[Rfam]
RNA sequence: GACAACACACGGGGGAGCCUGUAAUGGCUGAGAUGGCAGAACUGAUUGCCGAACCCUUUGUACCUGAUCUGGAUUAUACCAGCGUAGGGAAGUGGCAGAAGAAUAAUC
Dot-bracket structure: .......(((((((..(((......)))......(((((......)))))...)))).....((((..((((......))))..))))...)))..............
RNA: TPP riboswitch aptamer (THI element)
Organism: Paenibacillus bovis